[Rfam]
RNA sequence: CUUUUUUACGCAUAUGUAAUCACCUCACUACAUUUUACUGUUCCUGUUGAUUUUCUAACAGGUAUAGAAAAACGCAUAGUAUGGUUUGUAAGUUCCUAUCUGCGUAAAAGGAACAUUAAAAAAGUGCUGCAUUGCGGUAAAUAAAAAAAACCGCUAUUGUCAGUAGCAUUUUUGCAUGUUAAAAAUUUUCUUUGUUUAGAUGGCGGUUGACAAGCCGCCUUUUUUCCAUCCCCGAAAA
Number, nucleotide and partner (000 for none) at each position: 001c111002u110003u109004u108005u000006u000007u106008a105009c000010g000011c102012a000013u000014a099015u098016g097017u000018a000019a000020u000021c000022a000023c000024c000025u000026c000027a000028c000029u076030a000031c074032a000033u072034u071035u070036u069037a000038c067039u066040g065041u064042u000043c062044c061045u060046g059047u058048u057049g056050a000051u000052u000053u000054u000055c000056u049057a048058a047059c046060a045061g044062g043063u000064a041065u040066a039067g038068a000069a036070a035071a034072a033073c000074g031075c000076a029077u000078a000079g089080u088081a087082u000083g000084g000085u000086u000087u081088g080089u079090a000091a000092g000093u000094u000095c000096c000097u016098a015099u014100c000101u000102g011103c000104g000105u008106a007107a000108a004109a003110g002111g001112a000113a000114c000115a000116u000117u000118a000119a000120a000121a000122a000123a000124g000125u165126g164127c163128u162129g161130c159131a158132u000133u000134g154135c153136g152137g151138u000139a000140a000141a000142u000143a000144a000145a000146a000147a000148a000149a000150a000151c137152c136153g135154c134155u000156a000157u000158u131159g130160u000161c129162a128163g127164u126165a125166g000167c000168a000169u000170u000171u000172u000173u000174g000175c000176a000177u000178g000179u000180u000181a000182a000183a000184a000185a000186u000187u000188u000189u000190c000191u000192u000193u000194g000195u000196u000197u000198a223199g222200a221201u000202g219203g000204c217205g216206g215207u214208u213209g000210a000211c000212a000213a208214g207215c206216c205217g204218c000219c202220u000221u200222u199223u198224u000225u000226c000227c000228a000229u000230c000231c000232c000233c000234g000235a000236a000237a000238a000
RNA: Cis-regulator of HTH transcription factor